[Rfam]
A member of the RNA family "Small nucleolar RNA R38" from Nakaseomyces glabratus, 110 nucleotides long. A reference for the family is Bachellerie et al. (1995), "Antisense snoRNAs: a family of nucleolar RNAs with long complementarities to rRNA", Trends Biochem Sci. About the family: snoR38 is a C/D box small nucleolar RNA conserved across yeast, human, Arabidopsis and rice. It is encoded in the intron of elongation factor-1 gamma in both pombe and cerevisiae. snoR38 guides the methylation of 2'-O-ribose sites in 28S rRNA.
RNA sequence: UUCUAAUAUGAUGAGAACCUUUUUACAGUAUUUUACAGUUAUCCCUGUCUGAAUGGGUUAACAAAAUGGUAAUAAACUCAUAUGUCGAUGAAUUAUACUCUGAAUUUAGA
Numbered sequence: 001u002u003c004u005a006a007u008a009u010g011a012u013g014a015g016a017a018c019c020u021u022u023u024u025a026c027a028g029u030a031u032u033u034u035a036c037a038g039u040u041a042u043c044c045c046u047g048u049c050u051g052a053a054u055g056g057g058u059u060a061a062c063a064a065a066a067u068g069g070u071a072a073u074a075a076a077c078u079c080a081u082a083u084g085u086c087g088a089u090g091a092a093u094u095a096u097a098c099u100c101u102g103a104a105u106u107u108a109g110a
Base pairs, nucleotide, nucleotide: 001110002109005106006105007104